[Rfam]
RNA sequence: GGCUCUCUCUAGUUGGACCAGAUCUGAGCCUAGAAGCUCUCUGGCUAACUAGGGAACCCAC
Numbered sequence: 001g002g003c004u005c006u007c008u009c010u011a012g013u014u015g016g017a018c019c020a021g022a023u024c025u026g027a028g029c030c031u032a033g034a035a036g037c038u039c040u041c042u043g044g045c046u047a048a049c050u051a052g053g054g055a056a057c058c059c060a061c
Stems, first nucleotide, its partner, number of pairs: 001059002004056001006055011018044005026039004
RNA: Trans-activation response element (TAR)